[Rfam]
RNA: Small nucleolar RNA SNORA9
RNA sequence: CCGCAGGCUCCAGCAUGGCGGGGCCUGGCGUGGCCCCUGCCAUUCCUGCAGCGCUGCCAGAGCGUCCCGGGGCCGUUUGAGGCCGCUCCCGGUGCUUCCCGGGCGCGGUUAUGGAACCCCCGGACAUUC
Numbered sequence: 001c002c003g004c005a006g007g008c009u010c011c012a013g014c015a016u017g018g019c020g021g022g023g024c025c026u027g028g029c030g031u032g033g034c035c036c037c038u039g040c041c042a043u044u045c046c047u048g049c050a051g052c053g054c055u056g057c058c059a060g061a062g063c064g065u066c067c068c069g070g071g072g073c074c075g076u077u078u079g080a081g082g083c084c085g086c087u088c089c090c091g092g093u094g095c096u097u098c099c100c101g102g103g104c105g106c107g108g109u110u111a112u113g114g115a116a117c118c119c120c121c122g123g124a125c126a127u128u129c
Stems, first nucleotide, its partner, number of pairs: 003057003007054002016042003021036005068122005083108004088103001090101003